[Rfam]
RNA sequence: UCGGGACAGCGCGGUCUCCCGGCCACGCCAAGGCACGUUGCCCAAGCACCGC
Number, nucleotide and partner (000 for none) at each position: 001u022002c021003g020004g019005g018006a017007c000008a000009g000010c000011g052012c051013g050014g049015u048016c000017u006018c005019c004020c003021g002022g001023c000024c000025a000026c000027g000028c000029c000030a000031a000032g042033g041034c040035a039036c000037g000038u000039u035040g034041c033042c032043c000044a000045a000046g000047c000048a015049c014050c013051g012052c011
RNA: chrB-b RNA
Organism: Thalassobaculum fulvum